The record is a 69-nucleotide RNA sequence from Phytoamicus setariae, which matches "S-element" in Rfam. Gene Ontology terms of the family: translation regulator activity and mRNA transcription. It scores 77 bits against the family's covariance model. On this family, see Venkova-Canova et al., Mol Microbiol 2004: "Two discrete elements are required for the replication of a repABC plasmid: an antisense RNA and a stem-loop structure". The family has 29 seed sequences and 231 matches in Rfam 15.1. Taxonomically the source falls in Phytoamicus (Bacteria, Pseudomonadati, Hyphomicrobiales, Rhizobiaceae). Rfam's curators write: This family represents a group of S-elements from p42d and related plasmids. The S-element has multiple functions and is believed to act as a negative regulator of repC transcription, be required for efficient replication and act as a translational enhancer of repC.
[Rfam]
RNA sequence: UGUCAAGAGUCUUUGGCGCCGAUUUGGUGAGUAGAUUUCUUUUGCCUUCUUGAAAGGUGAAGAGACAUG
Numbered sequence: 001u002g003u004c005a006a007g008a009g010u011c012u013u014u015g016g017c018g019c020c021g022a023u024u025u026g027g028u029g030a031g032u033a034g035a036u037u038u039c040u041u042u043u044g045c046c047u048u049c050u051u052g053a054a055a056g057g058u059g060a061a062g063a064g065a066c067a068u069g
Stems, first nucleotide, its partner, number of pairs: 009066004013061002017059004023054003026050002029047001031045005